Rfam assigns this 378-nucleotide sequence from Toxoplasma gondii to the family "RNase MRP".

RNA sequence: GGGAGCAGCAAGCAAGUUGCAUCAUAGCGUUCCGACGAGGGCUUUUGAGACUUCGCUGUGGGCGUCCGCGCGCAGUGCGUCGACCACGCAGUCUCCAAUAUGCUCUUUACAAGCUAUGGGGAAAGUCUCCGUGCCAUGGGGUCGAGAGGAUCGAUGAGAAAUUCGUGGACGCCUCUCAGCUACAGUCGCCUGAUGUGUUGUGCACGUCUCCUCUGUGACAGGCUUCUUGCCUGGAGAAGAGGCAGCGCGACGGCUGGAGGUUGAUUGCAGUUGCCGCUUACAUGCGGGCUCUUCCAAGGCUUGAGUUCAUGCGACUGGUGGGACUGUCUUCCCGAGGACGUUCCGCUAACAGAAUGGAGCUUAUGUCUUCGCUGUUCC
Number, nucleotide and partner (000 for none) at each position: 001g000002g378003g377004a376005g375006c374007a373008g372009c371010a000011a368012g367013c000014a000015a316016g315017u314018u313019g312020c311021a000022u000023c119024a117025u116026a115027g114028c113029g000030u000031u000032c000033c000034g000035a000036c000037g000038a106039g105040g104041g103042c102043u000044u100045u000046u000047g000048a000049g000050a000051c000052u000053u000054c000055g000056c000057u000058g000059u000060g000061g000062g000063c000064g000065u000066c000067c000068g000069c000070g000071c000072g000073c000074a000075g000076u000077g000078c000079g000080u000081c000082g000083a000084c000085c000086a000087c000088g000089c000090a000091g000092u000093c000094u000095c000096c000097a000098a000099u000100a044101u000102g042103c041104u040105c039106u038107u000108u000109a000110c000111a000112a000113g028114c027115u026116a025117u024118g000119g023120g000121g000122a000123a362124a361125g360126u000127c359128u358129c357130c356131g000132u000133g000134c000135c000136a000137u000138g000139g000140g152141g151142u150143c149144g000145a000146g000147a000148g000149g143150a142151u141152c140153g000154a000155u000156g000157a000158g000159a000160a000161a000162u000163u000164c000165g000166u000167g000168g000169a000170c000171g000172c000173c000174u000175c000176u000177c000178a000179g000180c000181u000182a000183c000184a000185g000186u000187c000188g203189c202190c000191u200192g199193a198194u000195g000196u000197g000198u193199u192200g191201u000202g189203c188204a000205c287206g000207u000208c000209u000210c000211c000212u282213c000214u280215g279216u000217g000218a000219c000220a000221g275222g274223c273224u000225u000226c000227u000228u000229g000230c000231c000232u269233g268234g000235a266236g000237a000238a000239g000240a000241g000242g000243c000244a000245g000246c000247g000248c000249g000250a000251c000252g262253g261254c260255u259256g000257g000258a000259g255260g254261u253262u252263g000264a000265u000266u235267g000268c233269a232270g000271u000272u000273g223274c222275c221276g000277c000278u000279u215280a214281c000282a212283u000284g000285c000286g000287g205288g000289c000290u000291c000292u000293u000294c000295c000296a000297a000298g000299g000300c000301u000302u000303g000304a000305g000306u000307u000308c000309a000310u000311g020312c019313g018314a017315c016316u015317g000318g346319u345320g344321g343322g342323a341324c000325u000326g000327u000328c000329u000330u000331c000332c000333c000334g000335a000336g000337g000338a000339c000340g000341u323342u322343c321344c320345g319346c318347u000348a000349a000350c000351a000352g000353a000354a000355u000356g130357g129358a128359g127360c125361u124362u123363a000364u000365g000366u000367c012368u011369u000370c000371g009372c008373u007374g006375u005376u004377c003378c002
Rfam classes the family as a ribozyme. Its Rfam clan is "RNaseP clan". RNase MRP is an enzymatically active ribonucleoprotein with two distinct roles in eukaryotes. The base pairs follow the family's consensus structure, which is taken from published work. Taxonomically the source falls in Toxoplasma gondii type III (Eukaryota, Alveolata, Eucoccidiorida, Sarcocystidae).